[Rfam]
RNA: Plastid-psbN 5UTR RNA
Organism: Genlisea aurea
RNA sequence: AAAUAUUGCCAUAAUUAGUGUUGUUCCCCAUCCAGGAGCUACUUUUCCAUAUUCUGAAUUU
Numbered sequence: 001a002a003a004u005a006u007u008g009c010c011a012u013a014a015u016u017a018g019u020g021u022u023g024u025u026c027c028c029c030a031u032c033c034a035g036g037a038g039c040u041a042c043u044u045u046u047c048c049a050u051a052u053u054c055u056g057a058a059u060u061u
Base pairs, nucleotide, nucleotide: 017045018044020042021041023039024038025037026036027035